[Rfam]
A member of the RNA family "mir-971 microRNA precursor family" from Vespula germanica, 78 nucleotides long. The family has 6 seed sequences and 118 matches in Rfam 15.1. The organism belongs to Vespula, within Eukaryota. The match comes from Rfam's covariance-model search (70 bits).
RNA sequence: CAGGCGGCUCACUCUAAGUCUGAAUACCAAGCCCUGUUUAGAAACAGCUUGGUGUUCUACCUUACAGUGGGUCGACUG
Dot-bracket structure: .....((((((((.(((.......((((((((..............)))))))).......))).)))))))).....